[Rfam]
RNA: SAM riboswitch aptamer (S box leader)
Organism: Pontibacter akesuensis
RNA sequence: GAUUUAUAAAGAAGAAGGGAGAGAACAGGCUCUAUGAACUUCUAGCAACCAGUUACAAACCAGGUGCUAAUUCCUGCCUAAAUCAGUUAGGGCAUAUAAAUU
Numbered sequence: 001g002a003u004u005u006a007u008a009a010a011g012a013a014g015a016a017g018g019g020a021g022a023g024a025a026c027a028g029g030c031u032c033u034a035u036g037a038a039c040u041u042c043u044a045g046c047a048a049c050c051a052g053u054u055a056c057a058a059a060c061c062a063g064g065u066g067c068u069a070a071u072u073c074c075u076g077c078c079u080a081a082a083u084c085a086g087u088u089a090g091g092g093c094a095u096a097u098a099a100a101u102u
Stems, first nucleotide, its partner, number of pairs: 001102008013043005021032003026076004044068004049064002052060003072094001077091005
Dot-bracket structure: ((((((((....(((((...(((..[[[[)))......)))))((((.((.(((...)))..))))))...(]]]](((((.....)))))..)))))))))